Overview
The family of this 114-nucleotide RNA sequence from Propithecus coquereli is "Y RNA". The literature on the family includes a 2000 paper in Nucleic Acids Res by Teunissen et al., "Conserved features of Y RNAs: a comparison of experimentally derived secondary structures". Pairs were carried over by alignment from the consensus structure, which is taken from published work. The match comes from Rfam's covariance-model search (63 bits). NCBI's taxonomy places the organism under Eukaryota, Opisthokonta, Sarcopterygii, Boreoeutheria, Propithecus. It is annotated as a non-coding RNA gene. Y RNAs are components of the Ro ribonucleoprotein particle (Ro RNP), in association with Ro60 and La proteins. The Y RNAs and Ro60 and La proteins are well conserved, but the function of the Ro RNP is not known. In humans the RNA component can be one of four small RNAs -- hY1, hY3, hY4 and hY5. These small RNAs are predicted to fold into a conserved secondary structure containing three stem structures. The largest of the four, hY1, contains an additional hairpin. This family includes a significant number of annotated pseudogenes and the model is expected to discriminate poorly between real and Y RNA related pseudogenes.

RNA sequence: GGCUGGUCCGCAGAUAGUGAGUUACCUCACUUGAUUGUUCACAGUCAGUUACAGAUUGAAGUCCUUUUUCUACUACUUUCUCCCCUCCUCACUACUGCACCUGACUAGUCUUUA
Numbered sequence: 001g002g003c004u005g006g007u008c009c010g011c012a013g014a015u016a017g018u019g020a021g022u023u024a025c026c027u028c029a030c031u032u033g034a035u036u037g038u039u040c041a042c043a044g045u046c047a048g049u050u051a052c053a054g055a056u057u058g059a060a061g062u063c064c065u066u067u068u069u070c071u072a073c074u075a076c077u078u079u080c081u082c083c084c085c086u087c088c089u090c091a092c093u094a095c096u097g098c099a100c101c102u103g104a105c106u107a108g109u110c111u112u113u114a
Base pairs, nucleotide, nucleotide: 001110002109003108004107005106006105007104008103010102015097016093017092018091019090020089021088044074047071048070